The record is an 82-nucleotide RNA sequence from Leptobrachium leishanense, which matches "Small nucleolar RNA SNORD74" in Rfam. The family's RNA type in Rfam is C/D-box small nucleolar RNA. Its family is annotated with nucleolus and RNA processing in the Gene Ontology. The family has 22 seed sequences and 929 matches in Rfam 15.1. Pairs were carried over by alignment from the consensus structure, which was predicted with PFOLD.
RNA sequence: UUGCCUGGAAAUGAUGAGAAAUGAUGUUGGUAGGGACAUCUGAGAACUAAUGAUGAGCAAUCAACAUCCCUGAACCAGGCAU
Number, nucleotide and partner (000 for none) at each position: 001u000002u081003g080004c079005c078006u000007g000008g000009a000010a000011a000012u000013g000014a000015u000016g000017a000018g000019a000020a000021a000022u000023g000024a000025u000026g000027u000028u000029g000030g000031u000032a000033g000034g000035g000036a000037c000038a000039u000040c000041u000042g000043a000044g000045a000046a000047c000048u000049a000050a000051u000052g000053a000054u000055g000056a000057g000058c000059a000060a000061u000062c000063a000064a000065c000066a000067u000068c000069c000070c000071u000072g000073a000074a000075c000076c000077a000078g005079g004080c003081a002082u000